[Rfam]
RNA sequence: ACGUGACUUGUGGGCUUCCCUUUGUCAUCCUUUGCCUAGGGCUCUGAUAGGGCAGGGACUGCAAAGGGGUACUCAGUUGUCACCGUC
Numbered sequence: 001a002c003g004u005g006a007c008u009u010g011u012g013g014g015c016u017u018c019c020c021u022u023u024g025u026c027a028u029c030c031u032u033u034g035c036c037u038a039g040g041g042c043u044c045u046g047a048u049a050g051g052g053c054a055g056g057g058a059c060u061g062c063a064a065a066g067g068g069g070u071a072c073u074c075a076g077u078u079g080u081c082a083c084c085g086u087c
Base pairs, nucleotide, nucleotide: 017069018068019067020066021065022064024062025061028058029057030056031055032054034053035052036051037050
Shown here is an 87-nucleotide RNA sequence from Cavia porcellus, a member of the family "mir-204 microRNA precursor family". Gene Ontology terms of the family: RISC complex and miRNA-mediated post-transcriptional gene silencing. Rfam 15.1 lists 1,730 matches to the family in 644 species. Lineage of the source: Eukaryota > Metazoa > Gnathostomata > Amniota > Cavia. On this family, see Murchison et al., Genome Res 2008: "Conservation of small RNA pathways in platypus".